RNA sequence: GGUGCGGUCGGACGUCUGCUUUUGGCAGAUCCCUGUGGCAGGGGCGCGCUAUAUGACUAAUGAUGCCUCCGGGCAUGACAGGAGA
Number, nucleotide and partner (000 for none) at each position: 001g050002g049003u048004g047005c046006g045007g000008u000009c000010g000011g000012a000013c000014g030015u029016c028017u027018g026019c025020u024021u000022u000023u000024g020025g019026c018027a017028g016029a015030u014031c000032c000033c000034u000035g000036u000037g000038g000039c000040a000041g000042g000043g000044g000045c006046g005047c004048g003049c002050u001051a000052u000053a000054u000055g000056a000057c000058u000059a000060a000061u000062g000063a076064u075065g074066c073067c072068u000069c000070c000071g000072g067073g066074c065075a064076u063077g000078a000079c000080a000081g000082g000083a000084g000085a000
The family of this 85-nucleotide RNA sequence from Rhodnius prolixus is "KDPG-aldolase RNA". It scores 85 bits against the family's covariance model. The base pairs follow the family's consensus structure, which is taken from published work. Rfam classes the family as a small RNA.